[Rfam]
RNA: Small nucleolar RNA SNORA61
Organism: Castor canadensis
RNA sequence: ACCAUUUGAUUCCCUUUCCCAUUGGAUCUGACCACGGGUCUUGGUGGUCAUAAAAGGAGGGAAAGUGAUCCUGAAGCUGCCUCACAGCACUGCAGCCUGGCAUAUGGGCUAGUUUCAAACAGCA
Numbered sequence: 001a002c003c004a005u006u007u008g009a010u011u012c013c014c015u016u017u018c019c020c021a022u023u024g025g026a027u028c029u030g031a032c033c034a035c036g037g038g039u040c041u042u043g044g045u046g047g048u049c050a051u052a053a054a055a056g057g058a059g060g061g062a063a064a065g066u067g068a069u070c071c072u073g074a075a076g077c078u079g080c081c082u083c084a085c086a087g088c089a090c091u092g093c094a095g096c097c098u099g100g101c102a103u104a105u106g107g108g109c110u111a112g113u114u115u116c117a118a119a120c121a122g123c124a
Base pairs, nucleotide, nucleotide: 003060005058006057007056019047020046021045022044023043025040026039027038028037077112078111079109080108081107082106091102092101093100